The record is a 121-nucleotide RNA from Streptomyces cacaoi, which matches "Streptomyces sRNA scr5239" in Rfam. A search with the family's covariance model found it, with a score of 87 bits. Taxonomically the source falls in Streptomyces (Bacteria, Actinomycetota, Actinomycetes, Kitasatosporales). The literature on the family includes a 2012 paper in Microbiology by Vockenhuber and Suess, "Streptomyces coelicolor sRNA scr5239 inhibits agarase expression by direct base pairing to the dagA coding region".
RNA sequence: CUUCUGCCCUCCCCGCACAGGAGGGUGGAUCGAGGUCCGCGCCGCUCUCUGCCCUGACUGCGGACGGGCCUUGUAGCUCCGGGCUGCGGUGCCGGGCGGGUUGAGGGUCCCGCUCCGGCGC
Numbered sequence: 001c002u003u004c005u006g007c008c009c010u011c012c013c014c015g016c017a018c019a020g021g022a023g024g025g026u027g028g029a030u031c032g033a034g035g036u037c038c039g040c041g042c043c044g045c046u047c048u049c050u051g052c053c054c055u056g057a058c059u060g061c062g063g064a065c066g067g068g069c070c071u072u073g074u075a076g077c078u079c080c081g082g083g084c085u086g087c088g089g090u091g092c093c094g095g096g097c098g099g100g101u102u103g104a105g106g107g108u109c110c111c112g113c114u115c116c117g118g119c120g121c
Stems, first nucleotide, its partner, number of pairs: 003029004008024005032072005038066002042063001044061002046057002076090003080086002094115007